[Rfam]
RNA sequence: GAAACCUCACCUUGCCACACGCCAUCCGGGCGCCAGAGCAGUAAAACACGGACAUUCCCGUCCGGGUGAGGAGAAAGG
Numbered sequence: 001g002a003a004a005c006c007u008c009a010c011c012u013u014g015c016c017a018c019a020c021g022c023c024a025u026c027c028g029g030g031c032g033c034c035a036g037a038g039c040a041g042u043a044a045a046a047c048a049c050g051g052a053c054a055u056u057c058c059c060g061u062c063c064g065g066g067u068g069a070g071g072a073g074a075a076a077g078g
Stems, first nucleotide, its partner, number of pairs: 005071008015038001016036001020032004041049002050063004

The record is a 78-nucleotide RNA sequence, which matches "RAGATH-10 RNA" in Rfam.
The sequence is in the family's curated seed alignment.
On this family, see Weinberg et al., Nat Chem Biol 2015: "New classes of self-cleaving ribozymes revealed by comparative genomics analysis".
By type it is a small RNA.